[Rfam]
RNA sequence: ACCUGCAUUCGAAAGUGAUCGCGGCCUGGCCCGUGGCCGGGUCAUCGAUAGUGCAGGGAGAGUAACGGCGAGAGCUUUCCCGUGUGUGGGGGGGGUCCGUGUCCGCCCUCCCACACCCUGGUGCUGUCGGACA
Numbered sequence: 001a002c003c004u005g006c007a008u009u010c011g012a013a014a015g016u017g018a019u020c021g022c023g024g025c026c027u028g029g030c031c032c033g034u035g036g037c038c039g040g041g042u043c044a045u046c047g048a049u050a051g052u053g054c055a056g057g058g059a060g061a062g063u064a065a066c067g068g069c070g071a072g073a074g075c076u077u078u079c080c081c082g083u084g085u086g087u088g089g090g091g092g093g094g095g096u097c098c099g100u101g102u103c104c105g106c107c108c109u110c111c112c113a114c115a116c117c118c119u120g121g122u123g124c125u126g127u128c129g130g131a132c133a
Stems, first nucleotide, its partner, number of pairs: 002057008015045006023038004069129003073125003086116003090112001091110005

Shown here is a 133-nucleotide sequence from Baryphthengus martii, a member of the family "Small nucleolar RNA SNORA71".
A search with the family's covariance model found it, with a score of 99 bits.
By type it is an H/ACA-box small nucleolar RNA.
Rfam links the family to the GO terms nucleolus and RNA processing.
For this family Rfam cites "The family of box ACA small nucleolar RNAs is defined by an evolutionarily conserved secondary structure and ubiquitous sequence elements essential for RNA accumulation" (Ganot et al., Genes Dev, 1997).
Rfam's curators write: The members of this family belong to the H/ACA class of snoRNAs which bind a number of proteins (including dyskerin, Gar1p and Nop10p) to form snoRNP complexes. This class of snoRNAs are thought to guide the sites of modification of uridines to pseudouridines by forming direct base pairing interactions with substrate RNAs. This family includes U71 (SNORA71), ACA39 (SNORA39) and ACA60 (SNORA60). U71 and ACA60 are predicted to guide the pseudouridylation of U406 and U1004 in 18S rRNA respectively. There is currently no target RNA identified for ACA39.
The source organism's lineage runs through Eukaryota, Bilateria, Dipnotetrapodomorpha, Telluraves and Baryphthengus.
Rfam 15.1 lists 1,805 matches to the family in 606 species.